[Rfam]
Shown here is a 158-nucleotide RNA from Candida viswanathii, a member of the family "Small nucleolar RNA snR80". A search with the family's covariance model found it, with a score of 81 bits. The family's RNA type in Rfam is H/ACA-box small nucleolar RNA. Pairs were carried over by alignment from the consensus structure, which was predicted with WAR. Its family is annotated with nucleolus and RNA processing in the Gene Ontology. On this family, see Schattner et al., Nucleic Acids Res 2004: "Genome-wide searching for pseudouridylation guide snoRNAs: analysis of the Saccharomyces cerevisiae genome".
RNA sequence: GGAUGUUUGCCAACACUCUGGUGCCAAAUCAUUGGAAUUCUAUUCUGAUGGCCAUAUUUGGUUCCUAUUUUGGUGCAAACUAGAACAGUAAAGCUGACUACUCACCAGUGUAUCCAAUAUUUUGAUGGGUAUGCUUGGUCCAUUUCAUUAGCUUACAU
Numbered sequence: 001g002g003a004u005g006u007u008u009g010c011c012a013a014c015a016c017u018c019u020g021g022u023g024c025c026a027a028a029u030c031a032u033u034g035g036a037a038u039u040c041u042a043u044u045c046u047g048a049u050g051g052c053c054a055u056a057u058u059u060g061g062u063u064c065c066u067a068u069u070u071u072g073g074u075g076c077a078a079a080c081u082a083g084a085a086c087a088g089u090a091a092a093g094c095u096g097a098c099u100a101c102u103c104a105c106c107a108g109u110g111u112a113u114c115c116a117a118u119a120u121u122u123u124g125a126u127g128g129g130u131a132u133g134c135u136u137g138g139u140c141c142a143u144u145u146c147a148u149u150a151g152c153u154u155a156c157a158u
Stems, first nucleotide, its partner, number of pairs: 007078003020065002023062002026059004092153004105138004110132006